Description:
The record is a 164-nucleotide sequence from Loa loa, which matches "U1 spliceosomal RNA" in Rfam. Rfam's curators write: U1 is a small nuclear RNA (snRNA) component of the spliceosome (involved in pre-mRNA splicing). Its 5' end forms complementary base pairs with the 5' splice junction, thus defining the 5' donor site of an intron. There are significant differences in sequence and secondary structure between metazoan and yeast U1 snRNAs, the latter being much longer (568 nucleotides as compared to 164 nucleotides in human). Nevertheless, secondary structure predictions suggest that all U1 snRNAs share a 'common core' consisting of helices I, II, the proximal region of III, and IV. This family does not contain the larger yeast sequences. The literature on the family includes a 2009 paper in Nature by Pomeranz Krummel et al., "Crystal structure of human spliceosomal U1 snRNP at 5.5 A resolution". The source organism's lineage runs through Eukaryota, Bilateria, Rhabditida, Spirurina and Loa. The family's consensus secondary structure is taken from published work.
RNA sequence: AAACUAACCUUGCUGAGAGGCCUCUCGCGAUCAUGAAGGCGGGACCUCCAUGGCGAGGCCCGGUCACUGCACUUCUCGAUCGGGUUGACCCGUGUGGCAAUCCCAAGUCGGGAUUGGCCAGCAGCUUAAUUUUUGCGUUUGGGGAAAGCGUUCGCGCUUCCCUG
Numbered sequence: 001a002a003a004c005u006a007a008c009c010u011u012g013c014u015g016a017g018a019g020g021c022c023u024c025u026c027g028c029g030a031u032c033a034u035g036a037a038g039g040c041g042g043g044a045c046c047u048c049c050a051u052g053g054c055g056a057g058g059c060c061c062g063g064u065c066a067c068u069g070c071a072c073u074u075c076u077c078g079a080u081c082g083g084g085u086u087g088a089c090c091c092g093u094g095u096g097g098c099a100a101u102c103c104c105a106a107g108u109c110g111g112g113a114u115u116g117g118c119c120a121g122c123a124g125c126u127u128a129a130u131u132u133u134u135g136c137g138u139u140u141g142g143g144g145a146a147a148g149c150g151u152u153c154g155c156g157c158u159u160c161c162c163u164g
Stems, first nucleotide, its partner, number of pairs: 012125004017048004024043005050093004055089001057086003061082005095120003098116001099114001102111002141163005147158004